[Rfam]
RNA sequence: GGGGAUGAUCGGUUUCGACGACGGUCGUGGGUUCAGGGGAAGCGGGUCGAGGAUGCACAGUCAUCUCGUCAACGCUCUGUGCGAACCAAUAGGUGCCGAUAACACUCGCACCGACUUCACCCUCGCCGCCUGAGCGAGUCCUGAGGUCCGUCAGUCCGGGGAGCGCUCCCGCCCCGGUGCCUGGCGUCAUUGUGGGAGCCACUGCUAGGAAGCCGUGCCGGUAGGCUUCCUGGGACUCUUGACCGGCUGAGCCCGUCGGCGUCCUUGUCCGUGUGAGACGCCGGGGCUGAGAAAGUCAGAAACGGACUGCACCCGGAGAAGUCCUGUUGCACGCCCGUCGGACCGGGGUUCGAUUCCCCGCAUCUCCACCC
Numbered sequence: 001g002g003g004g005a006u007g008a009u010c011g012g013u014u015u016c017g018a019c020g021a022c023g024g025u026c027g028u029g030g031g032u033u034c035a036g037g038g039g040a041a042g043c044g045g046g047u048c049g050a051g052g053a054u055g056c057a058c059a060g061u062c063a064u065c066u067c068g069u070c071a072a073c074g075c076u077c078u079g080u081g082c083g084a085a086c087c088a089a090u091a092g093g094u095g096c097c098g099a100u101a102a103c104a105c106u107c108g109c110a111c112c113g114a115c116u117u118c119a120c121c122c123u124c125g126c127c128g129c130c131u132g133a134g135c136g137a138g139u140c141c142u143g144a145g146g147u148c149c150g151u152c153a154g155u156c157c158g159g160g161g162a163g164c165g166c167u168c169c170c171g172c173c174c175c176g177g178u179g180c181c182u183g184g185c186g187u188c189a190u191u192g193u194g195g196g197a198g199c200c201a202c203u204g205c206u207a208g209g210a211a212g213c214c215g216u217g218c219c220g221g222u223a224g225g226c227u228u229c230c231u232g233g234g235a236c237u238c239u240u241g242a243c244c245g246g247c248u249g250a251g252c253c254c255g256u257c258g259g260c261g262u263c264c265u266u267g268u269c270c271g272u273g274u275g276a277g278a279c280g281c282c283g284g285g286g287c288u289g290a291g292a293a294a295g296u297c298a299g300a301a302a303c304g305g306a307c308u309g310c311a312c313c314c315g316g317a318g319a320a321g322u323c324c325u326g327u328u329g330c331a332c333g334c335c336c337g338u339c340g341g342a343c344c345g346g347g348g349u350u351c352g353a354u355u356c357c358c359c360g361c362a363u364c365u366c367c368a369c370c371c
Stems, first nucleotide, its partner, number of pairs: 001367007019340006026333003034326005043315005048068005054083007121146005128139002149186006156177006163170001165199005205233009217247005250288005257283003262278002267307004274300001344360005